[Rfam]
RNA sequence: UGACAAUAUGUGGGUAAAUGGACUGACAAAACUCAGAAAUUGAGUGUCGUCUAUCAGCUUCUUCCUUCGGACCUACGGGACUGGAGUUAAAUAACGGCACUACAUAU
Number, nucleotide and partner (000 for none) at each position: 001u000002g000003a000004c000005a000006a000007u000008a000009u000010g000011u000012g000013g000014g000015u000016a000017a000018a000019u000020g000021g000022a000023c000024u000025g000026a000027c000028a000029a000030a000031a000032c000033u000034c000035a000036g000037a000038a000039a000040u000041u000042g000043a101044g100045u099046g098047u097048c096049g095050u000051c000052u000053a000054u000055c000056a088057g087058c086059u085060u084061c083062u000063u080064c079065c078066u077067u000068c000069g000070g000071a000072c000073c000074u000075a000076c000077g066078g065079g064080a063081c000082u000083g061084g060085a059086g058087u057088u056089a000090a000091a000092u000093a000094a000095c049096g048097g047098c046099a045100c044101u043102a000103c000104a000105u000106a000107u000
RNA: Small nucleolar RNA snoR97